[Rfam]
RNA sequence: GGUCGAUGAUGAUCAGUAAAAGGUCUGAGGGCACAGGGAAAUUACGCUCCACUACCCUCUUGGCUCCCAGCAGUCUCCCUUCUGUCAUGCUGUAGUAGAGCUAUGAUCAAGGAAGAGAUUGCUGACAGUUUGAGAUAAAUUCAGUUCCAGUUCUCCACAGUGAAAGGAGUUGUGGCACUGAGUGUCAUCCAACAGAACUCAUAAAGAGGAGCUCGUGGUAGUGGGGUGUCUUCAUUUGUUGUGUGUGAUCUCAAGUUUUCAAGCUGAGACC
Numbered sequence: 001g002g003u004c005g006a007u008g009a010u011g012a013u014c015a016g017u018a019a020a021a022g023g024u025c026u027g028a029g030g031g032c033a034c035a036g037g038g039a040a041a042u043u044a045c046g047c048u049c050c051a052c053u054a055c056c057c058u059c060u061u062g063g064c065u066c067c068c069a070g071c072a073g074u075c076u077c078c079c080u081u082c083u084g085u086c087a088u089g090c091u092g093u094a095g096u097a098g099a100g101c102u103a104u105g106a107u108c109a110a111g112g113a114a115g116a117g118a119u120u121g122c123u124g125a126c127a128g129u130u131u132g133a134g135a136u137a138a139a140u141u142c143a144g145u146u147c148c149a150g151u152u153c154u155c156c157a158c159a160g161u162g163a164a165a166g167g168a169g170u171u172g173u174g175g176c177a178c179u180g181a182g183u184g185u186c187a188u189c190c191a192a193c194a195g196a197a198c199u200c201a202u203a204a205a206g207a208g209g210a211g212c213u214c215g216u217g218g219u220a221g222u223g224g225g226g227u228g229u230c231u232u233c234a235u236u237u238g239u240u241g242u243g244u245g246u247g248a249u250c251u252c253a254a255g256u257u258u259u260c261a262a263g264c265u266g267a268g269a270c271c
Stems, first nucleotide, its partner, number of pairs: 001271004038252002041249003046227008064211004068124007081110001084107006090100001132190001134189003138185001147175003153169004